Background:
A member of the RNA family "mir-5985 microRNA precursor family" from Haemonchus contortus, 74 nucleotides long. Taxonomically the source falls in Haemonchus (Eukaryota, Opisthokonta, Metazoa, Rhabditomorpha).
RNA sequence: CGAGGAUGAAAACACUGACUUGUAACAUCGGCUGGCCACCAGCCGAUGUUACAAGUCAGUGUUUUUAUCCUCGC
Numbered sequence: 001c002g003a004g005g006a007u008g009a010a011a012a013c014a015c016u017g018a019c020u021u022g023u024a025a026c027a028u029c030g031g032c033u034g035g036c037c038a039c040c041a042g043c044c045g046a047u048g049u050u051a052c053a054a055g056u057c058a059g060u061g062u063u064u065u066u067a068u069c070c071u072c073g074c
Base pairs, nucleotide, nucleotide: 001073002072003071004070005069006068007067008066009065010064011063012062013061014060015059016058017057018056019055020054021053022052023051024050025049026048027047028046029045030044031043032042033041034040035039
Dot-bracket structure: (((((((((((((((((((((((((((((((((((...))))))))))))))))))))))))))))))))))).